[Rfam]
RNA sequence: AGAUCAUCGAUGACUUCCAUAUAUCCAUUCCUUGGAAAGCUGAACAACAUGAGUGAAAACUCUAUUAAAAAAAGAAAAGAAUUGGGAGGCCG
Numbered sequence: 001a002g003a004u005c006a007u008c009g010a011u012g013a014c015u016u017c018c019a020u021a022u023a024u025c026c027a028u029u030c031c032u033u034g035g036a037a038a039g040c041u042g043a044a045c046a047a048c049a050u051g052a053g054u055g056a057a058a059a060c061u062c063u064a065u066u067a068a069a070a071a072a073a074g075a076a077a078a079g080a081a082u083u084g085g086g087a088g089g090c091c092g
Stems, first nucleotide, its partner, number of pairs: 002091001004089002026055005032047003
The family of this 92-nucleotide sequence from Pongo abelii is "Small nucleolar RNA SNORD116". Pairs were carried over by alignment from the consensus structure, which was predicted with PFOLD. Rfam links the family to the GO terms nucleolus and RNA processing. A search with the family's covariance model found it, with a score of 59 bits. For this family Rfam cites "Identification of brain-specific and imprinted small nucleolar RNA genes exhibiting an unusual genomic organization" (Cavaille et al., Proc Natl Acad Sci U S A, 2000). Lineage of the source: Eukaryota > Vertebrata > Euteleostomi > Eutheria > Pongo.